The record is a 78-nucleotide sequence from Danio rerio, which matches "mir-103/107 microRNA precursor family" in Rfam. The family's consensus secondary structure was predicted with RNAalifold. It is one of the family's seed sequences. Its family is annotated with miRNA-mediated post-transcriptional gene silencing and RISC complex in the Gene Ontology. About the family: This family consists of the mammalian microRNA (miRNA) precursors mir-103 and mir107. Animal miRNAs are transcribed as ~70nt precursors and subsequently processed by the Dicer enzyme to give a ~22nt product. In this case the mature sequence comes from the 3' arm of the precursor. The extents of the hairpin precursors are not generally known and are estimated based on hairpin prediction. The products are thought to have regulatory roles through complementarity to mRNA. The involvement of Dicer in miRNA processing suggests a relationship with the phenomenon of RNA interference. miRNAs are numbered based on the sequence of the mature RNA. The source organism's lineage runs through Eukaryota, Bilateria, Vertebrata, Cyprinoidei and Danio.
RNA sequence: GUGUGCUCUGAGCUUCUUUACAGUGUUGUCUUGUGGCAUGGAGAUCAAGCAGCAUUGUACAGGGCUAUCACAGCACAC
Dot-bracket structure: .............((((.((((((((((.((((............)))))))))))))).))))..............
Numbered sequence: 001g002u003g004u005g006c007u008c009u010g011a012g013c014u015u016c017u018u019u020a021c022a023g024u025g026u027u028g029u030c031u032u033g034u035g036g037c038a039u040g041g042a043g044a045u046c047a048a049g050c051a052g053c054a055u056u057g058u059a060c061a062g063g064g065c066u067a068u069c070a071c072a073g074c075a076c077a078c
Stems, first nucleotide, its partner, number of pairs: 014064004019059010030049004